[Rfam]
RNA sequence: CAUCCAUCCCCGGGGGACCGCUAUCGCCGCGGUUGAGAGGAGGGCUGCAGCCCUCGACCCGCCGAACCUGAUCCGGCUGACACCGGCGUAGGGAGGGAGCGGUCCAUCGCC
Numbered sequence: 001c002a003u004c005c006a007u008c009c010c011c012g013g014g015g016g017a018c019c020g021c022u023a024u025c026g027c028c029g030c031g032g033u034u035g036a037g038a039g040g041a042g043g044g045c046u047g048c049a050g051c052c053c054u055c056g057a058c059c060c061g062c063c064g065a066a067c068c069u070g071a072u073c074c075g076g077c078u079g080a081c082a083c084c085g086g087c088g089u090a091g092g093g094a095g096g097g098a099g100c101g102g103u104c105c106a107u108c109g110c111c
Stems, first nucleotide, its partner, number of pairs: 007098004011061004016055001017033005041054005067092004073086004
The record is a 111-nucleotide RNA from Sphingomonas sp. EC-HK361, which matches "TPP riboswitch aptamer (THI element)" in Rfam. The source organism's lineage runs through Bacteria, Pseudomonadota, Alphaproteobacteria, Sphingomonadaceae and Sphingomonas. It scores 67 bits against the family's covariance model.